[Rfam]
RNA sequence: CUUGAUCGACCCCAACCACAGCGGUUGGCUGCGGUCCUGGCCGUAGGUGGCCAGGAGCGCCUGCGCCUC
Numbered sequence: 001c002u003u004g005a006u007c008g009a010c011c012c013c014a015a016c017c018a019c020a021g022c023g024g025u026u027g028g029c030u031g032c033g034g035u036c037c038u039g040g041c042c043g044u045a046g047g048u049g050g051c052c053a054g055g056a057g058c059g060c061c062u063g064c065g066c067c068u069c
Base pairs, nucleotide, nucleotide: 014026015025016024017023028064029063032059033058037054038053039052041050042049043048
The record is a 69-nucleotide RNA sequence from Mycobacterium asiaticum, which matches "ASpks TB sRNA" in Rfam. By type it is an antisense RNA. Taxonomically the source falls in Mycobacterium (Bacteria, Actinomycetota, Actinomycetes, Mycobacteriales). It scores 75 bits against the family's covariance model. Pairs were carried over by alignment from the consensus structure, which is taken from published work. The family has 77 seed sequences and 9,052 matches in Rfam 15.1.